RNA: Fluoride riboswitch aptamer (crcB RNA motif)
RNA sequence: AAAUUAAUAGGUGAUGGGACUCACCAUUAUGUGCCUUAAGGCUGAUGGUUCCUACUAAGUU
Dot-bracket structure: .........[[[[..((((((]]]].......(((....)))....)))))).........